A member of the RNA family "mir-1249 microRNA precursor family" from Rattus norvegicus, 75 nucleotides long. Gene Ontology terms of the family: miRNA-mediated post-transcriptional gene silencing and RISC complex. It is one of the family's seed sequences. Taxonomically the source falls in Rattus (Eukaryota, Metazoa, Tetrapoda, Muridae).

[Rfam]
RNA sequence: UGCAUGGGGAGGAGGGAGGGGAUGGGCCAAGUUCCCUAUGCCUGGAACGCCCUUCCCCCCCUUCUUCACCUGGCG
Numbered sequence: 001u002g003c004a005u006g007g008g009g010a011g012g013a014g015g016g017a018g019g020g021g022a023u024g025g026g027c028c029a030a031g032u033u034c035c036c037u038a039u040g041c042c043u044g045g046a047a048c049g050c051c052c053u054u055c056c057c058c059c060c061c062u063u064c065u066u067c068a069c070c071u072g073g074c075g
Stems, first nucleotide, its partner, number of pairs: 008067009018057002021055002024052004031048005